[Rfam]
RNA sequence: UUCCAUUGCUAAGUCAAGGCUUCUUCCUGCGACUCAUGUCGUGCUUUUCUCCAUGGAGGUCUGUCUGUUACAGCUUUGGUAGAUCGACACUGUCCCGCACUGAACUUCUUUCUGAAGCUAGGUUGACUGGUCUUCGUCUUGAGGACCAGUCGUAAGAGACAGAUGUGUUUUGUUUUUGAGUUGAGUUCUGCCUCUGCCUUUUCUGGUGGCUCAGUGGUAGAACUCUUAGUAACAUCCCACACAUUU
Numbered sequence: 001u002u003c004c005a006u007u008g009c010u011a012a013g014u015c016a017a018g019g020c021u022u023c024u025u026c027c028u029g030c031g032a033c034u035c036a037u038g039u040c041g042u043g044c045u046u047u048u049c050u051c052c053a054u055g056g057a058g059g060u061c062u063g064u065c066u067g068u069u070a071c072a073g074c075u076u077u078g079g080u081a082g083a084u085c086g087a088c089a090c091u092g093u094c095c096c097g098c099a100c101u102g103a104a105c106u107u108c109u110u111u112c113u114g115a116a117g118c119u120a121g122g123u124u125g126a127c128u129g130g131u132c133u134u135c136g137u138c139u140u141g142a143g144g145a146c147c148a149g150u151c152g153u154a155a156g157a158g159a160c161a162g163a164u165g166u167g168u169u170u171u172g173u174u175u176u177u178g179a180g181u182u183g184a185g186u187u188c189u190g191c192c193u194c195u196g197c198c199u200u201u202u203c204u205g206g207u208g209g210c211u212c213a214g215u216g217g218u219a220g221a222a223c224u225c226u227u228a229g230u231a232a233c234a235u236c237c238c239a240c241a242c243a244u245u246u
Base pairs, nucleotide, nucleotide: 003079004078005077017066018065019064020063022059023058024057025056026055028043029042030041031040032039090162091161092160093159094158103119105117106116107115108114125151126150127149128148129147130146131145132144133143134142135141136140165240166239167238171234172233173232183225184224185223186222189219190218191217192216194209195208196207197206198205

Shown here is a 246-nucleotide RNA sequence from Penicillium argentinense, a member of the family "Small nucleolar RNA snR191". The literature on the family includes a 2003 paper in RNA by Badis et al., "A snoRNA that guides the two most conserved pseudouridine modifications within rRNA confers a growth advantage in yeast". Rfam classes the family as an H/ACA-box small nucleolar RNA.